About this RNA
The record is a 159-nucleotide sequence from Streptomyces armeniacus, which matches "c-di-AMP riboswitch aptamer (ydaO/yuaA leader)" in Rfam. The source organism's lineage runs through Bacteria, Bacillati, Kitasatosporales, Streptomycetaceae and Streptomyces.
RNA sequence: GGGCUGCCUCCGCCGAGUCCGGCCGCCCCACAGCCGGAGCCGGGGACCCGACACGAACGAGACGGGGUGAAUCGGAGCGCGCACCCAGCGUGUUCCGUAGGGCCGCCUUCCGAGGCCCGAACCCGACAGCUAACCCGGUAGGCGGUCCUUGGAAGGAGU
Numbered sequence: 001g002g003g004c005u006g007c008c009u010c011c012g013c014c015g016a017g018u019c020c021g022g023c024c025g026c027c028c029c030a031c032a033g034c035c036g037g038a039g040c041c042g043g044g045g046a047c048c049c050g051a052c053a054c055g056a057a058c059g060a061g062a063c064g065g066g067g068u069g070a071a072u073c074g075g076a077g078c079g080c081g082c083a084c085c086c087a088g089c090g091u092g093u094u095c096c097g098u099a100g101g102g103c104c105g106c107c108u109u110c111c112g113a114g115g116c117c118c119g120a121a122c123c124c125g126a127c128a129g130c131u132a133a134c135c136c137g138g139u140a141g142g143c144g145g146u147c148c149u150u151g152g153a154a155g156g157a158g159u
Stems, first nucleotide, its partner, number of pairs: 011144004018038006039139006049064002065124003073097010100118004